[Rfam]
RNA sequence: GCUGAGCUCGGUAGUGUGAGCUUGUAACCCAAGCGGGGGCAUCAAGGCGGUCGGACAUUGUUUCGGUUCUUAACAGGUAGGGUCUGUUAAGGUUUGAUCUGCAUCGUCCGGUCCAAGUAGGGAGUUGGGCCACGCGACUCGGGCGUAGGCUCGGGUUUCAUGGUCCUUGGAGUUGGGCACCGCGUCAGGCUGGUUUCACAGAGCAGCGACAACCUCCCGCUCCCGUCGGUGGAAGGAUAACGAAUCGGUGCCUCGCUGUCCCACUGAAGCCUUAGGAUCCGAGGUCAAUCGGACGGUCACCUUU
Numbered sequence: 001g002c003u004g005a006g007c008u009c010g011g012u013a014g015u016g017u018g019a020g021c022u023u024g025u026a027a028c029c030c031a032a033g034c035g036g037g038g039g040c041a042u043c044a045a046g047g048c049g050g051u052c053g054g055a056c057a058u059u060g061u062u063u064c065g066g067u068u069c070u071u072a073a074c075a076g077g078u079a080g081g082g083u084c085u086g087u088u089a090a091g092g093u094u095u096g097a098u099c100u101g102c103a104u105c106g107u108c109c110g111g112u113c114c115a116a117g118u119a120g121g122g123a124g125u126u127g128g129g130c131c132a133c134g135c136g137a138c139u140c141g142g143g144c145g146u147a148g149g150c151u152c153g154g155g156u157u158u159c160a161u162g163g164u165c166c167u168u169g170g171a172g173u174u175g176g177g178c179a180c181c182g183c184g185u186c187a188g189g190c191u192g193g194u195u196u197c198a199c200a201g202a203g204c205a206g207c208g209a210c211a212a213c214c215u216c217c218c219g220c221u222c223c224c225g226u227c228g229g230u231g232g233a234a235g236g237a238u239a240a241c242g243a244a245u246c247g248g249u250g251c252c253u254c255g256c257u258g259u260c261c262c263a264c265u266g267a268a269g270c271c272u273u274a275g276g277a278u279c280c281g282a283g284g285u286c287a288a289u290c291g292g293a294c295g296g297u298c299a300c301c302u303u304u
Stems, first nucleotide, its partner, number of pairs: 001040003004023007028037003044303004049298005056291001058288003061284006068277006076271003080262003084258001086256002090253004099248003104243004108236002112233004117227001120224006127166006134159001136157009167172001175214002183208003190201003
Dot-bracket structure: ((((((((((......)))))))....(((....))))))...((((.(((((..(.(((((((((.((((((..(((.(((.(.((..((((.....(((..((((((..((((.(..((((((.((((((.(.(((((((((....))))))))).).))))))(....)..((......(((....(((......)))....)))....))....))))))..)..)))).))...))))..))).)))).)).).)))......))))))))).)))))).)))..)..))))).)))).
RNA: Plant signal recognition particle RNA
Organism: Nelumbo nucifera